This 99-nucleotide RNA from Enterococcus faecium belongs to the Rfam family "THF (Tetrahydrofolate) riboswitch aptamer".
Gene Ontology term of the family: tetrahydrofolate metabolic process.
[Rfam]
RNA sequence: UACAGAGUAGAAAAUAAAGCGUUAAGUGCUAAGAGGAUGGGAUGUUGCCUCUUGGACGAAGGACGUAAUGUUCGCGGUUUUAUUUUCGCAUUCGCUGCA
Numbered sequence: 001u002a003c004a005g006a007g008u009a010g011a012a013a014a015u016a017a018a019g020c021g022u023u024a025a026g027u028g029c030u031a032a033g034a035g036g037a038u039g040g041g042a043u044g045u046u047g048c049c050u051c052u053u054g055g056a057c058g059a060a061g062g063a064c065g066u067a068a069u070g071u072u073c074g075c076g077g078u079u080u081u082a083u084u085u086u087c088g089c090a091u092u093c094g095c096u097g098c099a
Stems, first nucleotide, its partner, number of pairs: 001099001003097003010087010020076003026057002029055008040093005061073004

The family's consensus secondary structure is taken from published work.
Tetrahydrofolate (THF) riboswitch was first reported for Ames et al. as an RNA motif in 5' untranslated (5'-UTR)regions of folate transport and biosynthesis genes in Firmicutes genomes.
The literature on the family includes a 2011 paper in Structure by Trausch et al., "The structure of a tetrahydrofolate-sensing riboswitch reveals two ligand binding sites in a single aptamer".